[Rfam]
RNA sequence: CCCCCAAGGGGAAGCGAAGACCCUAUAGAGCUUUACUGCAGGCUGUCGCUGGGACACGGUCGCUAAUGUGCAGCAUAGGUAGGAGUCGAUACACAGGUGCGCGCGCCAGCGCGUCGCCGAGACAGCAUUGAAAUACUACCCGUUAGUGACUGUGACCCUCACUCCGGGAGGAGGACACCGGUAGCCGGGCAGUUUGACUGGGGCGGUACGCGCUUGAAAAGAUAUCGAGCGCGCCCCAAGAUUUCCUCAUCCGGGUCGGAGACCCGGAACUGAGCGCAAGAGCAUAAGGAAGUCUGACAGUGACAUUCCCAACGAGUGUCGCUGACGCGAAAGCGUGGUCUAGCGAACCAAUCAGCCUGCUUGAUGCGGGCGAUUGAUGACAGAAAAGCUACCUUAGGGAUAACAGAGUCGUCACUCGCAAGAGCACAUAUCGACCGAGUGGCUUGCUACCUCGAUGUCGGUUCCCUCCAUCCUGCCCGUGCAGAAGCGGGCAAGGGUGAGGUUGUUCGCCUAUUAAAGGAGGUCGUGAGCUGGGUUUAGACCGUCGUGAGACAGGUCGGCUGCUAUCUAUUGGGGGUGUCAC
Numbered sequence: 001c002c003c004c005c006a007a008g009g010g011g012a013a014g015c016g017a018a019g020a021c022c023c024u025a026u027a028g029a030g031c032u033u034u035a036c037u038g039c040a041g042g043c044u045g046u047c048g049c050u051g052g053g054a055c056a057c058g059g060u061c062g063c064u065a066a067u068g069u070g071c072a073g074c075a076u077a078g079g080u081a082g083g084a085g086u087c088g089a090u091a092c093a094c095a096g097g098u099g100c101g102c103g104c105g106c107c108a109g110c111g112c113g114u115c116g117c118c119g120a121g122a123c124a125g126c127a128u129u130g131a132a133a134u135a136c137u138a139c140c141c142g143u144u145a146g147u148g149a150c151u152g153u154g155a156c157c158c159u160c161a162c163u164c165c166g167g168g169a170g171g172a173g174g175a176c177a178c179c180g181g182u183a184g185c186c187g188g189g190c191a192g193u194u195u196g197a198c199u200g201g202g203g204c205g206g207u208a209c210g211c212g213c214u215u216g217a218a219a220a221g222a223u224a225u226c227g228a229g230c231g232c233g234c235c236c237c238a239a240g241a242u243u244u245c246c247u248c249a250u251c252c253g254g255g256u257c258g259g260a261g262a263c264c265c266g267g268a269a270c271u272g273a274g275c276g277c278a279a280g281a282g283c284a285u286a287a288g289g290a291a292g293u294c295u296g297a298c299a300g301u302g303a304c305a306u307u308c309c310c311a312a313c314g315a316g317u318g319u320c321g322c323u324g325a326c327g328c329g330a331a332a333g334c335g336u337g338g339u340c341u342a343g344c345g346a347a348c349c350a351a352u353c354a355g356c357c358u359g360c361u362u363g364a365u366g367c368g369g370g371c372g373a374u375u376g377a378u379g380a381c382a383g384a385a386a387a388g389c390u391a392c393c394u395u396a397g398g399g400a401u402a403a404c405a406g407a408g409u410c411g412u413c414a415c416u417c418g419c420a421a422g423a424g425c426a427c428a429u430a431u432c433g434a435c436c437g438a439g440u441g442g443c444u445u446g447c448u449a450c451c452u453c454g455a456u457g458u459c460g461g462u463u464c465c466c467u468c469c470a471u472c473c474u475g476c477c478c479g480u481g482c483a484g485a486a487g488c489g490g491g492c493a494a495g496g497g498u499g500a501g502g503u504u505g506u507u508c509g510c511c512u513a514u515u516a517a518a519g520g521a522g523g524u525c526g527u528g529a530g531c532u533g534g535g536u537u538u539a540g541a542c543c544g545u546c547g548u549g550a551g552a553c554a555g556g557u558c559g560g561c562u563g564c565u566a567u568c569u570a571u572u573g574g575g576g577g578u579g580u581c582a583c
Stems, first nucleotide, its partner, number of pairs: 001577007010569003014564002022398004027394002029390005035193004042185007051158003055154014078140005085123003100113005162173004196209001197207003210232006235338002241293006247273002250268006274283002298324009326335001328333001349376005355371005407448003411445001412442007422432002459534001460532004464526001465523005472497002476491005500512004540558004544553003
The record is a 583-nucleotide part of an RNA from Halostella sp. JP-L12, which matches "Archaeal large subunit ribosomal RNA" in Rfam. Rfam links the family to the GO terms structural constituent of ribosome and ribosome. The match comes from Rfam's covariance-model search (2843 bits). Rfam 15.1 lists 2,955 matches to the family in 1,139 species. Clan: LSU clan.